Annotation
This 67-nucleotide sequence from Danio rerio belongs to the Rfam family "MAT2A 3'UTR stem loop A". By type it is a cis-regulatory element. The base pairs follow the family's consensus structure, which is taken from published work. For this family Rfam cites "New families of human regulatory RNA structures identified by comparative analysis of vertebrate genomes" (Parker et al., Genome Res, 2011).
RNA sequence: GGUUUUUCCUCUAUAAGCCUGUUGGUGUAAUCUACAGAGAAGCCCACAUGACUUACGAGGAGAAGUC
Numbered sequence: 001g002g003u004u005u006u007u008c009c010u011c012u013a014u015a016a017g018c019c020u021g022u023u024g025g026u027g028u029a030a031u032c033u034a035c036a037g038a039g040a041a042g043c044c045c046a047c048a049u050g051a052c053u054u055a056c057g058a059g060g061a062g063a064a065g066u067c
Stems, first nucleotide, its partner, number of pairs: 002067001004065001008060004014055004020048002024044003027035002